RNA sequence: CCGAUCAGUGCUUGGCACCCGGUGAGCACUCAGUCAGUAUUUGUUGAGUGCCUGCUGUGUGCCAGGCAUUGUGCUGA
Number, nucleotide and partner (000 for none) at each position: 001c000002c000003g074004a000005u000006c071007a070008g069009u000010g067011c066012u065013u064014g063015g062016c061017a060018c059019c000020c057021g056022g055023u054024g053025a000026g051027c050028a049029c048030u047031c046032a045033g044034u043035c000036a000037g000038u000039a000040u000041u000042u000043g034044u033045u032046g031047a030048g029049u028050g027051c026052c000053u024054g023055c022056u021057g020058u000059g018060u017061g016062c015063c014064a013065g012066g011067c010068a000069u008070u007071g006072u000073g000074c003075u000076g000077a000
This 77-nucleotide RNA from Pipistrellus kuhlii belongs to the Rfam family "mir-1271 microRNA precursor family".
A search with the family's covariance model found it, with a score of 85 bits.
Taxonomically the source falls in Pipistrellus (Eukaryota, Dipnotetrapodomorpha, Chiroptera, Yangochiroptera).